[Rfam]
RNA sequence: GUGGGCUAUGGUGACAUGUGCCCAAUCACCCCAGGGGGAAAGAUCGUGGGCACUCUGUGUGCCAUUGCAGGGGUCCUCACCAUUGCACUCCCUGUGCCCGUCAUUGUCUCCAAC
Numbered sequence: 001g002u003g004g005g006c007u008a009u010g011g012u013g014a015c016a017u018g019u020g021c022c023c024a025a026u027c028a029c030c031c032c033a034g035g036g037g038g039a040a041a042g043a044u045c046g047u048g049g050g051c052a053c054u055c056u057g058u059g060u061g062c063c064a065u066u067g068c069a070g071g072g073g074u075c076c077u078c079a080c081c082a083u084u085g086c087a088c089u090c091c092c093u094g095u096g097c098c099c100g101u102c103a104u105u106g107u108c109u110c111c112a113a114c
Stems, first nucleotide, its partner, number of pairs: 001114002004111002008107004013102003018097004037077002040074001049063003
This 114-nucleotide sequence belongs to the Rfam family "Potassium channel RNA editing signal". Pairs were carried over by alignment from the consensus structure, which is taken from published work. Rfam classes the family as a cis-regulatory element.